This 98-nucleotide RNA from Weissella cibaria belongs to the Rfam family "THF (Tetrahydrofolate) riboswitch aptamer". The organism belongs to Weissella, within Bacteria. Gene Ontology term of the family: tetrahydrofolate metabolic process.

RNA sequence: UGCAGGGUAGACUUUGGUGCGUUAAGUGCCGUGGAAACGGAAUGUGGGCCACGGACGAAGGACAACGUGUUCGCGAUACCAUCGUCACAUUCACUGUA
Numbered sequence: 001u002g003c004a005g006g007g008u009a010g011a012c013u014u015u016g017g018u019g020c021g022u023u024a025a026g027u028g029c030c031g032u033g034g035a036a037a038c039g040g041a042a043u044g045u046g047g048g049c050c051a052c053g054g055a056c057g058a059a060g061g062a063c064a065a066c067g068u069g070u071u072c073g074c075g076a077u078a079c080c081a082u083c084g085u086c087a088c089a090u091u092c093a094c095u096g097u098a
Stems, first nucleotide, its partner, number of pairs: 001098005010086003015081005020075003026056002029054006040092005060072004
Dot-bracket structure: (((((....(((..((((((((...((.((((((.....[[[[[....))))))))...((((.....))))))).)))))..))).]]]]].)))))